[Rfam]
RNA sequence: CUUUUAUCAGGAGAAGGUGGAGGGACAGGCCCGAUGAAACCCAGCAACCACUUGCCGAGUGCAGGAAUGGUGCCAACCUGGCAAAACACAACUCUGUGUUCUGCAAGAUAAGAG
Numbered sequence: 001c002u003u004u005u006a007u008c009a010g011g012a013g014a015a016g017g018u019g020g021a022g023g024g025a026c027a028g029g030c031c032c033g034a035u036g037a038a039a040c041c042c043a044g045c046a047a048c049c050a051c052u053u054g055c056c057g058a059g060u061g062c063a064g065g066a067a068u069g070g071u072g073c074c075a076a077c078c079u080g081g082c083a084a085a086a087c088a089c090a091a092c093u094c095u096g097u098g099u100u101c102u103g104c105a106a107g108a109u110a111a112g113a114g
Stems, first nucleotide, its partner, number of pairs: 001114008013042001016041003022032003026081001028079002044073003048070002051065003082103002085100005
A member of the RNA family "SAM riboswitch aptamer (S box leader)" from Geomicrobium sp. JCM 19039, 114 nucleotides long. Clan: SAM clan. NCBI's taxonomy places the organism under Bacteria, Bacillati, Bacilli, Caryophanales, Geomicrobium. It scores 61 bits against the family's covariance model.